Background:
This 194-nucleotide RNA sequence from Streptomyces sp. S4.7 belongs to the Rfam family "Actinobacteria sRNA Ms_IGR-5". A search with the family's covariance model found it, with a score of 99 bits. The family's RNA type in Rfam is small RNA.
[Rfam]
RNA sequence: ACACUAGAAGGGAGGUGGUUCGGAAGUGAUUUCAAUCCGGACAAGUGAGGUGGCUGCGGGCUGACGCCCGUCGUCGCACACGUGCGGUGCCGGUGAACCACCGGCCCAAUCCAAGCAGUCACCCGACCCGCGUGCUCGCCGGUAAGUCCGGCCGGCUCCUCCCCGGAGGAACCUGAGCACGCGGGUCGUCUGCG
Numbered sequence: 001a002c003a004c005u006a007g008a009a010g011g012g013a014g015g016u017g018g019u020u021c022g023g024a025a026g027u028g029a030u031u032u033c034a035a036u037c038c039g040g041a042c043a044a045g046u047g048a049g050g051u052g053g054c055u056g057c058g059g060g061c062u063g064a065c066g067c068c069c070g071u072c073g074u075c076g077c078a079c080a081c082g083u084g085c086g087g088u089g090c091c092g093g094u095g096a097a098c099c100a101c102c103g104g105c106c107c108a109a110u111c112c113a114a115g116c117a118g119u120c121a122c123c124c125g126a127c128c129c130g131c132g133u134g135c136u137c138g139c140c141g142g143u144a145a146g147u148c149c150g151g152c153c154g155g156c157u158c159c160u161c162c163c164c165g166g167a168g169g170a171a172c173c174u175g176a177g178c179a180c181g182c183g184g185g186u187c188g189u190c191u192g193c194g
Stems, first nucleotide, its partner, number of pairs: 015057005059106005124188013138156006